[Rfam]
RNA sequence: CCGGUUCCGGUUCACGCUGUCCGCAUGAGAUGACGGCGACCCGGCGACC
Numbered sequence: 001c002c003g004g005u006u007c008c009g010g011u012u013c014a015c016g017c018u019g020u021c022c023g024c025a026u027g028a029g030a031u032g033a034c035g036g037c038g039a040c041c042c043g044g045c046g047a048c049c
Stems, first nucleotide, its partner, number of pairs: 003049003007044004015038007